[Rfam]
RNA sequence: GGAUUCGGGGCCGUAACACUGUCUGAGAGGUUUACAUUUCUCACAGUGAACCGGUCUCUUUUUCAGCUGCU
Dot-bracket structure: ((....(((((((...((((((..(((............)))))))))...)))))))....)).......